Shown here is a 107-nucleotide RNA from Kordiimonas sediminis, a member of the family "TPP riboswitch aptamer (THI element)".
A search with the family's covariance model found it, with a score of 69 bits.
[Rfam]
RNA sequence: UUGUGUUUCGAGGGGAGCCAUACUGGCUGAGAGUAUCUACGAAGGUGGAUAGACCCUUAGAACCUGAACUGGAUCAAACCAGCGUAGGAACGGAGCGACAUCAUGCC
Number, nucleotide and partner (000 for none) at each position: 001u000002u000003g000004u000005g000006u095007u094008u093009c092010g091011a057012g056013g055014g054015g000016a000017g027018c026019c025020a024021u000022a000023c000024u020025g019026g018027c017028u000029g000030a000031g000032a000033g000034u051035a050036u049037c048038u047039a046040c045041g000042a000043a000044g000045g040046u039047g038048g037049a036050u035051a034052g000053a000054c014055c013056c012057u011058u000059a000060g000061a000062a000063c088064c087065u086066g085067a000068a000069c082070u081071g080072g079073a000074u000075c000076a000077a000078a000079c072080c071081a070082g069083c000084g000085u066086a065087g064088g063089a000090a000091c010092g009093g008094a007095g006096c000097g000098a000099c000100a000101u000102c000103a000104u000105g000106c000107c000